The family of this 75-nucleotide RNA sequence from Haemonchus placei is "mir-5928 microRNA precursor family". Gene Ontology terms of the family: miRNA-mediated post-transcriptional gene silencing and RISC complex. The base pairs follow the family's consensus structure, which was predicted with RNAalifold.
RNA sequence: GGCACAAACUUGAAGUAGAGUAGCUUAUUAGGGUCAGACGAUCUUUCUAAUCUACUUUACUUCGAAUUUGGGCCC
Numbered sequence: 001g002g003c004a005c006a007a008a009c010u011u012g013a014a015g016u017a018g019a020g021u022a023g024c025u026u027a028u029u030a031g032g033g034u035c036a037g038a039c040g041a042u043c044u045u046u047c048u049a050a051u052c053u054a055c056u057u058u059a060c061u062u063c064g065a066a067u068u069u070g071g072g073c074c075c
Stems, first nucleotide, its partner, number of pairs: 001074003005070004011064013025050003030045001032043004